[Rfam]
RNA sequence: CAUGGUACGUGCAACUGGCGGAUAAGUGGAGAAAACCACGGGGAGCACGUUACGUUUUGAAGCCGACCGCCUGGGCACCGCUA
Dot-bracket structure: ..((..((((((..(([[[[[....((((......)))).))..))))))..)).......(((..]]]]]..))).......
Numbered sequence: 001c002a003u004g005g006u007a008c009g010u011g012c013a014a015c016u017g018g019c020g021g022a023u024a025a026g027u028g029g030a031g032a033a034a035a036c037c038a039c040g041g042g043g044a045g046c047a048c049g050u051u052a053c054g055u056u057u058u059g060a061a062g063c064c065g066a067c068c069g070c071c072u073g074g075g076c077a078c079c080g081c082u083a
Stems, first nucleotide, its partner, number of pairs: 003054002007050006015042002017071005026039004062076003
A member of the RNA family "ZMP/ZTP riboswitch aptamer (pfl RNA motif)" from Lacrimispora xylanisolvens, 83 nucleotides long. The source organism's lineage runs through Bacteria, Bacillota, Clostridia, Lachnospiraceae and Lacrimispora.